[Rfam]
RNA sequence: GGAUCACCGGCUCAUCCCGCCGGGUAUCGGGCUGAUAAAAAUACACCGUCCUGCUCAGCGAUAAUGUCCUGCACGCCUGGCGGGUGCUCAUGGCGAAUUGUGCCGUCAGAUAGCUGACAAGCUCCCGCUUUAUCGCUGGUUUU
Numbered sequence: 001g002g003a004u005c006a007c008c009g010g011c012u013c014a015u016c017c018c019g020c021c022g023g024g025u026a027u028c029g030g031g032c033u034g035a036u037a038a039a040a041a042u043a044c045a046c047c048g049u050c051c052u053g054c055u056c057a058g059c060g061a062u063a064a065u066g067u068c069c070u071g072c073a074c075g076c077c078u079g080g081c082g083g084g085u086g087c088u089c090a091u092g093g094c095g096a097a098u099u100g101u102g103c104c105g106u107c108a109g110a111u112a113g114c115u116g117a118c119a120a121g122c123u124c125c126c127g128c129u130u131u132a133u134c135g136c137u138g139g140u141u142u143u
Stems, first nucleotide, its partner, number of pairs: 025112004030107002048077001050075001052073003058067003080103003116141003120137003
RNA: isrN Hfq binding RNA